Rfam assigns this 394-nucleotide RNA sequence from Prochlorococcus marinus to the family "Bacterial RNase P class A". The organism belongs to Prochlorococcus marinus, within Bacteria. Pairs were carried over by alignment from the consensus structure, which is taken from published work. Rfam classes the family as a ribozyme.
[Rfam]
Nucleotides: 394
Base pairs, nucleotide, nucleotide: 001390002389003388004387005386006385007384008383009382011379013341014340015339016338017337018336019335021060022059023058024057025056026055027054028053065377066376067375069374070373071372072371073370074249075248076247077246083277084276088244089243090242092241093240094108095107096106097105098104109123110121111120112119113118124239125238129237130236131233132232133231145180146179147176148175149174152171153170188206189205190204191203192202193201208228209226210225211224212223213222214221215220253298254297255296258288259287260286261285262284263283268282269281271279305324306323307322308321309320310319311318312317
Number, partner (000 for none) and nucleotide at each position: 001390g002389a003388a004387a005386g006385c007384a008383g009382g010000a011379g012000a013341g014340g015339u016338g017337a018336u019335c020000a021060c022059a023058a024057u025056c026055a027054a028053g029000a030000u031000u032000u033000a034000u035000c036000g037000c038000g039000u040000u041000u042000c043000g044000c045000a046000a047000u048000a049000a050000a051000u052000g053028c054027u055026u056025g057024a058023u059022u060021g061000a062000g063000g064000a065377a066376a067375g068000u069374c070373c071372g072371g073370g074249c075248u076247c077246c078000c079000u080000g081000a082000u083277g084276g085000u086000c087000a088244a089243g090242c091000u092241u093240g094108c095107u096106g097105g098104g099000u100000a101000a102000c103000u104098c105097c106096c107095a108094g109123u110121g111120c112119g113118g114000g115000u116000g117000a118113c119112c120111g121110u122000g123109a124239g125238g126000a127000u128000a129237g130236u131233g132232c133231c134000a135000c136000a137000g138000a139000a140000a141000c142000a143000c144000a145180c146179c147176g148175c149174c150000g151000a152171u153170g154000g155000c156000u157000u158000a159000g160000u161000c162000c163000c164000a165000c166000u167000c168000a169000g170153c171152a172000c173000a174149g175148g176147c177000a178000a179146g180145g181000g182000u183000g184000c185000a186000a187000a188206g189205g190204u191203g192202c193201g194000g195000u196000a197000a198000g199000a200000g201193c202192g203191c204190a205189c206188c207000a208228g209226c210225a211224g212223c213222a214221u215220c216000g217000a218000g219000a220215g221214g222213u223212g224211c225210u226209g227000g228208c229000u230000u231133g232132g233131u234000a235000a236130a237129c238125c239124c240093c241092g242090g243089c244088u245000a246077g247076g248075a249074g250000c251000a252000a253298g254297g255296c256000a257000a258288a259287g260286g261285a262284g263283c264000a265000u266000u267000a268282a269281u270000g271279g272000c273000c274000a275000u276084c277083u278000a279271u280000g281269a282268u283263g284262c285261u286260c287259c288258u289000g290000a291000a292000a293000a294000a295000a296255g297254c298253c299000g300000c301000u302000u303000g304000a305324g306323g307322u308321u309320g310319u311318c312317g313000g314000u315000a316000a317312c318311g319310g320309c321308a322307g323306u324305c325000c326000c327000a328000g329000a330000u331000a332000g333000a334000u335019g336018a337017u338016u339015a340014c341013c342000c343000a344000c345000u346000a347000a348000c349000c350000u351000u352000u353000u354000u355000a356000g357000g358000u359000a360000g361000u362000g363000a364000a365000c366000a367000g368000a369000a370073c371072c372071c373070g374069g375067c376066u377065u378000a379011u380000g381000a382009c383008c384007u385006g386005c387004u388003u389002u390001c391000a392000c393000c394000c